RNA sequence: UGUAGGAGGAAGGCAAAUGCAAAGCAUUUUUGGGAAUGCCUUCCUCCGAGUGGCCGCCGAACCCAAGGUGAGGGGGCGUUACCUUAA
Numbered sequence: 001u002g003u004a005g006g007a008g009g010a011a012g013g014c015a016a017a018u019g020c021a022a023a024g025c026a027u028u029u030u031u032g033g034g035a036a037u038g039c040c041u042u043c044c045u046c047c048g049a050g051u052g053g054c055c056g057c058c059g060a061a062c063c064c065a066a067g068g069u070g071a072g073g074g075g076g077c078g079u080u081a082c083c084u085u086a087a
Stems, first nucleotide, its partner, number of pairs: 008044006015029005053077003057073002061069002
Record summary
A member of the RNA family "GA-cis RNA" from Roseburia sp. 1XD42-69, 87 nucleotides long. A search with the family's covariance model found it, with a score of 56 bits.